[Rfam]
A member of the RNA family "LOOT RNA", 115 nucleotides long. It is one of the family's seed sequences.
RNA sequence: AACCUAAGCCCCGCUCAUGCGGGGCAUGGUCUAAAAUCUCACGACGAUACUAAACCCUACGUUUAGCAACUCGUCGUGAGUCAUUUCCCGAAAGGGGCAUGUAGCCGCAAGGCUU
Numbered sequence: 001a002a003c004c005u006a007a008g009c010c011c012c013g014c015u016c017a018u019g020c021g022g023g024g025c026a027u028g029g030u031c032u033a034a035a036a037u038c039u040c041a042c043g044a045c046g047a048u049a050c051u052a053a054a055c056c057c058u059a060c061g062u063u064u065a066g067c068a069a070c071u072c073g074u075c076g077u078g079a080g081u082c083a084u085u086u087c088c089c090g091a092a093a094g095g096g097g098c099a100u101g102u103a104g105c106c107g108c109a110a111g112g113c114u115u
Stems, first nucleotide, its partner, number of pairs: 002030003009024006038080010050066006082101003086097004103114004